[Rfam]
RNA sequence: UGGCGUGCACGUGACUGGCGCAAUCAAGGUGGAGACGACCACCGGGGAGCGAAACUAGUCCGCACGCCGCGCGCCUGGGUGUACGGG
Numbered sequence: 001u002g003g004c005g006u007g008c009a010c011g012u013g014a015c016u017g018g019c020g021c022a023a024u025c026a027a028g029g030u031g032g033a034g035a036c037g038a039c040c041a042c043c044g045g046g047g048a049g050c051g052a053a054a055c056u057a058g059u060c061c062g063c064a065c066g067c068c069g070c071g072c073g074c075c076u077g078g079g080u081g082u083a084c085g086g087g
Stems, first nucleotide, its partner, number of pairs: 003055001010051003015046002017075005029042004064082005
RNA: ZMP/ZTP riboswitch aptamer (pfl RNA motif)